[Rfam]
RNA: Small nucleolar RNA SNORD100
Organism: Mastacembelus armatus
Nucleotides: 084
Stems, first nucleotide, its partner, number of pairs: 001084001003082004
Number, partner (000 for none) and nucleotide at each position: 001084u002000u003082g004081a005080u006079c007000a008000c009000u010000g011000a012000u013000g014000a015000u016000a017000u018000c019000u020000u021000g022000g023000c024000u025000c026000c027000c028000u029000c030000u031000a032000c033000u034000g035000a036000a037000c038000u039000c040000u041000a042000u043000g044000u045000g046000g047000a048000a049000a050000c051000c052000u053000g054000c055000c056000a057000c058000u059000g060000u061000u062000a063000c064000c065000c066000a067000a068000u069000u070000u071000c072000u073000g074000u075000c076000u077000g078000a079006g080005a081004u082003u083000u084001g